Rfam assigns this 451-nucleotide part of an RNA from Acidianus brierleyi to the family "Archaeal large subunit ribosomal RNA". The family's consensus secondary structure is taken from published work. The match comes from Rfam's covariance-model search (2873 bits). Lineage of the source: Archaea > Thermoproteati > Thermoproteota > Sulfolobaceae > Acidianus.
RNA sequence: CCUCCCGAAAUGCGCCCUAGCGCAGCCUCUCUGGAGGUGGCUUGCGGGGUAGAGAGACUGAUUGGGGGUUGGUAGCGAAAGCUACCGAUUUCCAGUCAAACUCCGAACCUGCGGGCGCCUGAGAAGGAGGGAGUGGAUCACUCAGCGUAAGGUCGAGUGGUAAGAGGGGAACAACCCCAACUCGGGUUAAGGUCCCUAAGUACUGGCUAAGUGCAAACUGAAAAGCGUCUCAAGCCCUAGACAGCGGGUAGGUGGGCCCAGCAGCAGCCAUCCUCUAAGGAGUGCGUAACAGCUCACCCGCCGAGGCUUGAGGCCUUUAAGACUGGUCGGGGCUAAAGCCAGUCACCGAGACCCGAGGGGUGGGACUCAAUGAGUCUCACCAGGUAGGGAGGCGCCGUGAUAGGUGAGAAGGUGGGUCGAGAGAUCCACUGGACCUUUCACGGGUGCAGAU
Numbered sequence: 001c002c003u004c005c006c007g008a009a010a011u012g013c014g015c016c017c018u019a020g021c022g023c024a025g026c027c028u029c030u031c032u033g034g035a036g037g038u039g040g041c042u043u044g045c046g047g048g049g050u051a052g053a054g055a056g057a058c059u060g061a062u063u064g065g066g067g068g069u070u071g072g073u074a075g076c077g078a079a080a081g082c083u084a085c086c087g088a089u090u091u092c093c094a095g096u097c098a099a100a101c102u103c104c105g106a107a108c109c110u111g112c113g114g115g116c117g118c119c120u121g122a123g124a125a126g127g128a129g130g131g132a133g134u135g136g137a138u139c140a141c142u143c144a145g146c147g148u149a150a151g152g153u154c155g156a157g158u159g160g161u162a163a164g165a166g167g168g169g170a171a172c173a174a175c176c177c178c179a180a181c182u183c184g185g186g187u188u189a190a191g192g193u194c195c196c197u198a199a200g201u202a203c204u205g206g207c208u209a210a211g212u213g214c215a216a217a218c219u220g221a222a223a224a225g226c227g228u229c230u231c232a233a234g235c236c237c238u239a240g241a242c243a244g245c246g247g248g249u250a251g252g253u254g255g256g257c258c259c260a261g262c263a264g265c266a267g268c269c270a271u272c273c274u275c276u277a278a279g280g281a282g283u284g285c286g287u288a289a290c291a292g293c294u295c296a297c298c299c300g301c302c303g304a305g306g307c308u309u310g311a312g313g314c315c316u317u318u319a320a321g322a323c324u325g326g327u328c329g330g331g332g333c334u335a336a337a338g339c340c341a342g343u344c345a346c347c348g349a350g351a352c353c354c355g356a357g358g359g360g361u362g363g364g365a366c367u368c369a370a371u372g373a374g375u376c377u378c379a380c381c382a383g384g385u386a387g388g389g390a391g392g393c394g395c396c397g398u399g400a401u402a403g404g405u406g407a408g409a410a411g412g413u414g415g416g417u418c419g420a421g422a423g424a425u426c427c428a429c430u431g432g433a434c435c436u437u438u439c440a441c442g443g444g445u446g447c448a449g450a451u
Stems, first nucleotide, its partner, number of pairs: 001392006011024005026133001027131006036119003040116008052104001053102002060097010071086006137161007145153001166177003181357007191347003200344001202343006223317003227314010244301005250274003255269003275279001280295001284293002359381001362378005393446001395443006402436003411430008